This 151-nucleotide sequence from Paenibacillus validus belongs to the Rfam family "c-di-AMP riboswitch aptamer (ydaO/yuaA leader)". Taxonomically the source falls in Paenibacillus (Bacteria, Bacillati, Bacillota, Paenibacillaceae).
RNA sequence: UUGAAUAAGAAGCCGAAUUUCUUCAAGAAAACGGGGGAACCAUGAAUCAUAGGGGUGAAUUCCGUGCAGGGCCGGGUAACGGGCCGCAUGGAUAGGGGGCCUGUAUACCCGAAUCCGUCAGCUAACCUCGUAGGCUUGUGUUACAGGAACC
Numbered sequence: 001u002u003g004a005a006u007a008a009g010a011a012g013c014c015g016a017a018u019u020u021c022u023u024c025a026a027g028a029a030a031a032c033g034g035g036g037g038a039a040c041c042a043u044g045a046a047u048c049a050u051a052g053g054g055g056u057g058a059a060u061u062c063c064g065u066g067c068a069g070g071g072c073c074g075g076g077u078a079a080c081g082g083g084c085c086g087c088a089u090g091g092a093u094a095g096g097g098g099g100c101c102u103g104u105a106u107a108c109c110c111g112a113a114u115c116c117g118u119c120a121g122c123u124a125a126c127c128u129c130g131u132a133g134g135c136u137u138g139u140g141u142u143a144c145a146g147g148a149a150c151c
Stems, first nucleotide, its partner, number of pairs: 011136004018030003031131006041052001053116003061092007095110003